A member of the RNA family "PyrR binding site" from Lactococcus lactis, 123 nucleotides long.
The organism belongs to Lactococcus, within Bacteria.
Rfam classes the family as a cis-regulatory element.
About the family: This family represents the PyrR binding site and terminator structure. This RNA structure is found upstream of a variety of genes involved in pyrimidine biosynthesis and transport. The alignment also includes a portion of the antiterminator structure.
It is one of the family's seed sequences.
[Rfam]
RNA sequence: CUAACCUUUAAGAUUGUCCAGAGAGGCAGGCAAGGUCAGAAAUUAAUAAUGUAAUAAUAUGAUGGAUACUGUCCAUUUUCUGAUACCUACCUGCAUUCUCUUUGGAAUGCAGCUUUUUUGUAU
Numbered sequence: 001c002u003a004a005c006c007u008u009u010a011a012g013a014u015u016g017u018c019c020a021g022a023g024a025g026g027c028a029g030g031c032a033a034g035g036u037c038a039g040a041a042a043u044u045a046a047u048a049a050u051g052u053a054a055u056a057a058u059a060u061g062a063u064g065g066a067u068a069c070u071g072u073c074c075a076u077u078u079u080c081u082g083a084u085a086c087c088u089a090c091c092u093g094c095a096u097u098c099u100c101u102u103u104g105g106a107a108u109g110c111a112g113c114u115u116u117u118u119u120g121u122a123u
Stems, first nucleotide, its partner, number of pairs: 004036005014029005039070001042067003046063002049060004085118001089114001091112008